[Rfam]
RNA sequence: UAAAAAAAAUCCCUGCAAGGACAUACUUGCAGGGUCCUUCUAUAUUCCUCGAAAUAUCUAAAUGAUACAGAGGUUGAAGGCAAAGGGAGAGGAGAAACCGGAGGAAGAACUUAUGGGGAAACGUAAGUCUUCUCCGCGG
Numbered sequence: 001u002a003a004a005a006a007a008a009a010u011c012c013c014u015g016c017a018a019g020g021a022c023a024u025a026c027u028u029g030c031a032g033g034g035u036c037c038u039u040c041u042a043u044a045u046u047c048c049u050c051g052a053a054a055u056a057u058c059u060a061a062a063u064g065a066u067a068c069a070g071a072g073g074u075u076g077a078a079g080g081c082a083a084a085g086g087g088a089g090a091g092g093a094g095a096a097a098c099c100g101g102a103g104g105a106a107g108a109a110c111u112u113a114u115g116g117g118g119a120a121a122c123g124u125a126a127g128u129c130u131u132c133u134c135c136g137c138g139g
Base pairs, nucleotide, nucleotide: 011034012033013032014031015030016029017028018027019026035087036086037085038084039083044075046073099136100135101134102133104132105131106130107129109128110127111126112125113124
RNA: ylbH leader
Organism: Bacillus solimangrovi